The record is a 108-nucleotide sequence from Mycena chlorophos, which matches "Small nucleolar RNA Z13/snr52" in Rfam.
The base pairs follow the family's consensus structure, which was predicted with PFOLD.
The source organism's lineage runs through Eukaryota, Dikarya, Agaricomycetes, Agaricales and Mycena.
Rfam links the family to the GO terms RNA processing and nucleolus.
RNA sequence: CCGCUUUGUAGGAUUAAAUCAGUACGGAUGUAAGAGUCUACACGACUCGUUUCCGAGAGCGCAAAACCCCAUGUGGAGACUUCCGCUGCCUUCCUAAUGACUUUUUUU
Numbered sequence: 001c002c003g004c005u006u007u008g009u010a011g012g013a014u015u016a017a018a019u020c021a022g023u024a025c026g027g028a029u030g031u032a033a034g035a036g037u038c039u040a041c042a043c044g045a046c047u048c049g050u051u052u053c054c055g056a057g058a059g060c061g062c063a064a065a066a067c068c069c070c071a072u073g074u075g076g077a078g079a080c081u082u083c084c085g086c087u088g089c090c091u092u093c094c095u096a097a098u099g100a101c102u103u104u105u106u107u108u
Stems, first nucleotide, its partner, number of pairs: 003107001025085004
Dot-bracket structure: ..(.....................((((.....................................................)))).....................).